[Rfam]
RNA sequence: UUUCAAUGAUGACAAAUUCAAGGCUUGUUUCUCAAAACAUUCGCAGUGGCCGCCUGAGAGCUUUCGCCUCGCCGGGCUUGAGAGCUUCUGAUGUUCAACAUUUCCUUCCUUGGAUGUCUGAGGCC
Numbered sequence: 001u002u003u004c005a006a007u008g009a010u011g012a013c014a015a016a017u018u019c020a021a022g023g024c025u026u027g028u029u030u031c032u033c034a035a036a037a038c039a040u041u042c043g044c045a046g047u048g049g050c051c052g053c054c055u056g057a058g059a060g061c062u063u064u065c066g067c068c069u070c071g072c073c074g075g076g077c078u079u080g081a082g083a084g085c086u087u088c089u090g091a092u093g094u095u096c097a098a099c100a101u102u103u104c105c106u107u108c109c110u111u112g113g114a115u116g117u118c119u120g121a122g123g124c125c
Stems, first nucleotide, its partner, number of pairs: 003123002060085006
Source information: Shown here is a 125-nucleotide RNA from Vanilla planifolia, a member of the family "Small nucleolar RNA SNORD14". It is annotated as a C/D-box small nucleolar RNA. For this family Rfam cites "An essential domain in Saccharomyces cerevisiae U14 snoRNA is absent in vertebrates, but conserved in other yeasts" (Samarsky et al., Nucleic Acids Res, 1996). Rfam 15.1 lists 4,559 matches to the family in 936 species. U14 small nucleolar RNA (U14 snoRNA) is required for early cleavages of eukaryotic precursor rRNAs. In yeasts, this molecule possess a stem-loop region (known as the Y-domain) which is essential for function. Lineage of the source: Eukaryota > Streptophyta > Euphyllophyta > Asparagales > Vanilla. Pairs were carried over by alignment from the consensus structure, which was predicted with PFOLD.